[Rfam]
RNA sequence: UGAUUCCAGGGGCAAAAGGUCUAACCCCACAUUCAUAGGUUGGUGAAAGACCUUGGAACCUCCCCGAUAUGAGCAUAAAAGUGGGAUGAUAAUCCCACGAUAUGCGAAUAGUGGGUAGGAUUGUGGAAGUGCGAAGCACGGAACAAUCCGUAGGCAUCA
Numbered sequence: 001u002g003a004u005u006c007c008a009g010g011g012g013c014a015a016a017a018g019g020u021c022u023a024a025c026c027c028c029a030c031a032u033u034c035a036u037a038g039g040u041u042g043g044u045g046a047a048a049g050a051c052c053u054u055g056g057a058a059c060c061u062c063c064c065c066g067a068u069a070u071g072a073g074c075a076u077a078a079a080a081g082u083g084g085g086a087u088g089a090u091a092a093u094c095c096c097a098c099g100a101u102a103u104g105c106g107a108a109u110a111g112u113g114g115g116u117a118g119g120a121u122u123g124u125g126g127a128a129g130u131g132c133g134a135a136g137c138a139c140g141g142a143a144c145a146a147u148c149c150g151u152a153g154g155c156a157u158c159a
Base pairs, nucleotide, nucleotide: 001159002158003157004156006154007153010059013056017053018052019051020050021049022048025045026043027042029040030039031036063115064114065113066112068110069109070108073105074104075103076102081098082097083096084095085094086093087092118149119148120147121146122145123144124143129139130138131137132136
RNA: Clostridiales-1 RNA
Organism: [Bacteroides] pectinophilus